[Rfam]
This 102-nucleotide RNA sequence from Psychrobacillus sp. BL-248-WT-3 belongs to the Rfam family "Purine riboswitch aptamer".
RNA sequence: AACAAUCAAAUUUCGUAUACUCGUAUAAUAGCAGGGAUAUGGCCUGCAAGUUUCUACCGACUUACCGUAAAGAAGUCGACUAUGAGUGGCAUGGUUAAAUGA
Numbered sequence: 001a002a003c004a005a006u007c008a009a010a011u012u013u014c015g016u017a018u019a020c021u022c023g024u025a026u027a028a029u030a031g032c033a034g035g036g037a038u039a040u041g042g043c044c045u046g047c048a049a050g051u052u053u054c055u056a057c058c059g060a061c062u063u064a065c066c067g068u069a070a071a072g073a074a075g076u077c078g079a080c081u082a083u084g085a086g087u088g089g090c091a092u093g094g095u096u097a098a099a100u101g102a
Stems, first nucleotide, its partner, number of pairs: 018088008029049001031047005058078006

Lineage of the source: Bacteria > Bacillati > Bacillota > Bacilli > Psychrobacillus. It scores 84 bits against the family's covariance model.